The family of this 201-nucleotide RNA from Streptomyces sp. A73 is "Streptomyces RNA 1601". Lineage of the source: Bacteria > Actinomycetota > Actinomycetes > Streptomycetaceae > Streptomyces. Rfam's curators write: Identified by deep sequencing of transcriptome at the end of exponential growth phase. Appears longer on northern blot than sequencing transcript. Streptomyces specific. Pairs were carried over by alignment from the consensus structure. By type it is a small RNA.
RNA sequence: AUCGACCGGCUGAAGACUGUUCCCGCCGCCAUCGUCAGAGAGCGACAGGGACGGGCUCCAGCCCGCAAGUGGAGGCUCCGAUCUCCCACCUGGUGGCCCUGCGGGCCGCGGGUCAACGGUCAGGCUGCGCCCCGCGGAGUUCCGCGGCGGUGCUCCCGGUCUGUGAGGAGCCCCGCCUGUGACCCGUCCGGGGCGUUUUUC
Numbered sequence: 001a002u003c004g005a006c007c008g009g010c011u012g013a014a015g016a017c018u019g020u021u022c023c024c025g026c027c028g029c030c031a032u033c034g035u036c037a038g039a040g041a042g043c044g045a046c047a048g049g050g051a052c053g054g055g056c057u058c059c060a061g062c063c064c065g066c067a068a069g070u071g072g073a074g075g076c077u078c079c080g081a082u083c084u085c086c087c088a089c090c091u092g093g094u095g096g097c098c099c100u101g102c103g104g105g106c107c108g109c110g111g112g113u114c115a116a117c118g119g120u121c122a123g124g125c126u127g128c129g130c131c132c133c134g135c136g137g138a139g140u141u142c143c144g145c146g147g148c149g150g151u152g153c154u155c156c157c158g159g160u161c162u163g164u165g166a167g168g169a170g171c172c173c174c175g176c177c178u179g180u181g182a183c184c185c186g187u188c189c190g191g192g193g194c195g196u197u198u199u200u201c
Stems, first nucleotide, its partner, number of pairs: 004121005012059001061113004066092002069089004073084002093109007129194006135186003143181003146177005152171005